RNA sequence: UACAGGUUGGUGCAAACUUCGUGAAAGUGAAGGACGCUAAAGCUAUGGGUCUAAGGCUGCUUGUAAGUUGCUAUGAUUGCCAGGCUGCAAGU
Numbered sequence: 001u002a003c004a005g006g007u008u009g010g011u012g013c014a015a016a017c018u019u020c021g022u023g024a025a026a027g028u029g030a031a032g033g034a035c036g037c038u039a040a041a042g043c044u045a046u047g048g049g050u051c052u053a054a055g056g057c058u059g060c061u062u063g064u065a066a067g068u069u070g071c072u073a074u075g076a077u078u079g080c081c082a083g084g085c086u087g088c089a090a091g092u
Base pairs, nucleotide, nucleotide: 012037013036017032018031019030020029021028022027041086042085043084044083046082047081048080049077050076051075056071057070059068060067061066
Notes
Rfam assigns this 92-nucleotide RNA from Dehalobacter sp. 12DCB1 to the family "c-di-GMP-I riboswitch aptamer". It scores 55 bits against the family's covariance model. Rfam describes the family as follows. GEMM was predicted in a large-scale screen for bacterial structured RNA regulatory elements. Rfam 15.1 lists 5,092 matches to the family in 1,772 species.